[Rfam]
RNA sequence: CAGGCUGGCUGGAUGAUCGCGUCAUCACCUUGAGUGGUGCCGAGGAAAGUCCGCGCUGCACAGGGCAGGGUGACGGGUAACCCCCGCCGCGGGUAACCGUGGGACAGGGCCACAGAAACAUACCGCUUCCGUGAGGGAGUAAGGGUGAAAAGGCGGUGUAAAAGACCACCGGCGACGCCGUGAUGCGCCGGCCAGGCAACCCCCACCAGCAGCAAGGUCAAGCAGGGAUGAAGCGCUCUUCGGAGUGCGGGGAGCGGCCCGUUCCCCCGUUUCGGCGAUAAUCCCGGGUAGACUGCUUGAGCGGUAUGGCAACAUACCGUCGAGAGAGAUGAUCAUCCACGAGGAGACCGUCUGUGAAGAUACCUCUCCUCCGGACAGAACGCGGCUUACAGGCCAACCAGACAC
Numbered sequence: 001c002a003g004g005c006u007g008g009c010u011g012g013a014u015g016a017u018c019g020c021g022u023c024a025u026c027a028c029c030u031u032g033a034g035u036g037g038u039g040c041c042g043a044g045g046a047a048a049g050u051c052c053g054c055g056c057u058g059c060a061c062a063g064g065g066c067a068g069g070g071u072g073a074c075g076g077g078u079a080a081c082c083c084c085c086g087c088c089g090c091g092g093g094u095a096a097c098c099g100u101g102g103g104a105c106a107g108g109g110c111c112a113c114a115g116a117a118a119c120a121u122a123c124c125g126c127u128u129c130c131g132u133g134a135g136g137g138a139g140u141a142a143g144g145g146u147g148a149a150a151a152g153g154c155g156g157u158g159u160a161a162a163a164g165a166c167c168a169c170c171g172g173c174g175a176c177g178c179c180g181u182g183a184u185g186c187g188c189c190g191g192c193c194a195g196g197c198a199a200c201c202c203c204c205a206c207c208a209g210c211a212g213c214a215a216g217g218u219c220a221a222g223c224a225g226g227g228a229u230g231a232a233g234c235g236c237u238c239u240u241c242g243g244a245g246u247g248c249g250g251g252g253a254g255c256g257g258c259c260c261g262u263u264c265c266c267c268c269g270u271u272u273c274g275g276c277g278a279u280a281a282u283c284c285c286g287g288g289u290a291g292a293c294u295g296c297u298u299g300a301g302c303g304g305u306a307u308g309g310c311a312a313c314a315u316a317c318c319g320u321c322g323a324g325a326g327a328g329a330u331g332a333u334c335a336u337c338c339a340c341g342a343g344g345a346g347a348c349c350g351u352c353u354g355u356g357a358a359g360a361u362a363c364c365u366c367u368c369c370u371c372c373g374g375a376c377a378g379a380a381c382g383c384g385g386c387u388u389a390c391a392g393g394c395c396a397a398c399c400a401g402a403c404a405c
Stems, first nucleotide, its partner, number of pairs: 001401001003399002006396005011390001012337007020042002023039006047388003051385005056212004063273003069207004074086004088101005102203002107201002109197003123144002125140006152170002155167003172192001173190002176187003216294004225285005265277001267275002301320008
This 405-nucleotide sequence from Leptolinea tardivitalis belongs to the Rfam family "Bacterial RNase P class A". About the family: Ribonuclease P (RNase P) is a ubiquitous endoribonuclease, found in archaea, bacteria and eukarya as well as chloroplasts and mitochondria. NCBI's taxonomy places the organism under Bacteria, Bacillati, Chloroflexota, Anaerolineales, Leptolinea. The family's RNA type in Rfam is ribozyme.